A member of the RNA family "Bacterial RNase P class A" from Bordetella genomosp. 5, 411 nucleotides long.
On this family, see Frank and Pace, Annu Rev Biochem 1998: "Ribonuclease P: unity and diversity in a tRNA processing ribozyme".
It is annotated as a ribozyme.
Nucleotides: 411
Stems, first nucleotide, its partner, number of pairs: 001407010011396001012361007020037007042394003046391005051247004058296004063243005068082005083119001084117004120238002125236002127232003142220002144217004149212002152209001251318004261309006288301004325344008
Number, partner (000 for none) and nucleotide at each position: 001407g002406a003405g004404g005403u006402g007401g008400g009399u010398c011396g012361g013360g014359c015358a016357a017356u018355c019000g020037c021036g022035g023034u024033g025032g026031c027000g028000c029000a030000a031026g032025c033024c034023a035022u036021c037020g038000a039000g040000g041000a042394a043393g044392g045000u046391c047390u048389g049388g050387a051247c052246u053245c054244c055000a056000c057000a058296g059295g060294g061293c062000g063243g064242g065241a066240u067239a068082g069081c070080g071079g072078c073000u074000a075000a076000c077000g078072g079071c080070c081069g082068u083119c084117c085116g086115g087114c088000g089000a090000a091000c092000u093000g094000g095000c096000g097000g098000c099000u100000u101000g102000u103000c104000c105000g106000u107000c108000a109000g110000c111000g112000a113000a114087g115086c116085c117084g118000a119083g120238g121237a122000a123000c124000a125236g126235g127232g128231c129230c130000a131000c132000a133000g134000a135000g136000a137000c138000g139000a140000g141000u142220c143219u144217g145216c146215g147214g148000a149212g150211c151000g152209g153000g154000c155000g156000c157000g158000a159000a160000a161000g162000c163000g164000c165000a166000c167000c168000g169000g170000c171000a172000c173000g174000g175000c176000c177000a178000u179000c180000u181000c182000c183000g184000u185000g186000c187000u188000g189000a190000g191000c192000c193000g194000u195000c196000c197000g198000g199000c200000a201000a202000c203000g204000g205000g206000c207000g208000g209152c210000g211150g212149c213000g214147u215146c216145g217144c218000a219143g220142g221000g222000u223000g224000a225000a226000a227000c228000g229000c230129g231128g232127c233000a234000a235126c236125c237121u238120c239067u240066a241065u242064c243063c244054g245053g246052a247051g248000c249000a250000a251318c252317a253316u254315c255000a256000a257000a258000u259000a260000g261309g262308c263307a264306u265305g266304c267000g268000u269000a270000c271000g272000g273000u274000c275000u276000u277000c278000g279000g280000a281000c282000c283000g284000g285000g286000a287000a288301g289300g290299g291298c292000g293061g294060c295059u296058c297000c298291g299290u300289c301288c302000g303000a304266g305265c306264a307263u308262g309261c310000g311000g312000g313000u314000a315254g316253g317252u318251g319000g320000c321000a322000u323000g324000a325344g326343c327342g328341c329340g330339u331338c332337a333000g334000c335000a336000a337332u338331g339330g340329c341328g342327c343326g344325c345000c346000u347000a348000g349000a350000g351000g352000a353000a354000u355018g356017a357016u358015u359014g360013c361012c362000c363000g364000c365000c366000g367000g368000g369000g370000u371000c372000a373000c374000c375000c376000g377000g378000c379000g380000u381000a382000c383000a384000a385000a386000a387050u388049c389048c390047g391046g392044c393043c394042u395000a396011u397000a398010g399009a400008c401007u402006c403005a404004c405003c406002u407001c408000g409000c410000a411000a